[Rfam]
RNA sequence: AUUCUCUCAGCUCUGCUCAGUUACACUUGGUGAAGUAGUGUAAUUGUCGUCAUUAGAGAGAGAGAGAAAAUGAGUUCAAUAUGCACGGCAGAGGGACUGUGUGAUGUAGUCUCCCUGUUCCUUUUCAGCUCUACAUGU
Numbered sequence: 001a002u003u004c005u006c007u008c009a010g011c012u013c014u015g016c017u018c019a020g021u022u023a024c025a026c027u028u029g030g031u032g033a034a035g036u037a038g039u040g041u042a043a044u045u046g047u048c049g050u051c052a053u054u055a056g057a058g059a060g061a062g063a064g065a066g067a068a069a070a071u072g073a074g075u076u077c078a079a080u081a082u083g084c085a086c087g088g089c090a091g092a093g094g095g096a097c098u099g100u101g102u103g104a105u106g107u108a109g110u111c112u113c114c115c116u117g118u119u120c121c122u123u124u125u126c127a128g129c130u131c132u133a134c135a136u137g138u
Stems, first nucleotide, its partner, number of pairs: 002068007011060004019045008075128002078125002081122001083120001090116002094112005
Record summary
Rfam assigns this 138-nucleotide RNA sequence from Gopherus evgoodei to the family "Small nucleolar RNA SNORA64/SNORA10 family". A reference for the family is Narayanan et al. (1999), "Nucleolar localization signals of box H/ACA small nucleolar RNAs", EMBO J. Rfam describes the family as follows. This family belongs to the H/ACA class of small nucleolar RNAs (snoRNAs) which act as guides in the the modification of uridines to pseudouridines. NCBI's taxonomy places the organism under Eukaryota, Opisthokonta, Tetrapoda, Testudinidae, Gopherus. Rfam 15.1 lists 703 matches to the family in 311 species. Its family is annotated with RNA processing and nucleolus in the Gene Ontology. Rfam classes the family as an H/ACA-box small nucleolar RNA.